[Rfam]
RNA sequence: CCCAGUGGCUAAGUAGUAGUGCCGCAGGUAGCGAUAAUGAGUUUACCUGCACACGACUACUUAUCUAAAAGG
Numbered sequence: 001c002c003c004a005g006u007g008g009c010u011a012a013g014u015a016g017u018a019g020u021g022c023c024g025c026a027g028g029u030a031g032c033g034a035u036a037a038u039g040a041g042u043u044u045a046c047c048u049g050c051a052c053a054c055g056a057c058u059a060c061u062u063a064u065c066u067a068a069a070a071g072g
Base pairs, nucleotide, nucleotide: 001072002071006067007066010063011062012061013060014059015058016057017056019054024050025049026048027047028046029045030044

This 72-nucleotide RNA sequence from Stegodyphus mimosarum belongs to the Rfam family "mir-252 microRNA precursor family". The family is grouped with related families in Rfam's "mir-252 microRNA precursor family". The organism belongs to Stegodyphus, within Eukaryota. Pairs were carried over by alignment from the consensus structure, which was predicted with RNAalifold. A search with the family's covariance model found it, with a score of 55 bits. Its family is annotated with miRNA-mediated post-transcriptional gene silencing and RISC complex in the Gene Ontology.